[Rfam]
Rfam assigns this 60-nucleotide RNA sequence from Canis lupus to the family "mir-27 microRNA precursor family".
The family's consensus secondary structure was predicted with RNAalifold.
The sequence is in the family's curated seed alignment.
Lineage of the source: Eukaryota > Mammalia > Eutheria > Boreoeutheria > Canis lupus.
Its family is annotated with miRNA-mediated post-transcriptional gene silencing and RISC complex in the Gene Ontology.
RNA sequence: GGGCUUAGCUGCUUGUGAGCAGAGUCCACACCAAGUCGUGUUCACAGUGGCUAAGUUCCG
Numbered sequence: 001g002g003g004c005u006u007a008g009c010u011g012c013u014u015g016u017g018a019g020c021a022g023a024g025u026c027c028a029c030a031c032c033a034a035g036u037c038g039u040g041u042u043c044a045c046a047g048u049g050g051c052u053a054a055g056u057u058c059c060g
Base pairs, nucleotide, nucleotide: 001058002057003056004055005054006053007052008051009050010049015045016044017043018042019041020040021039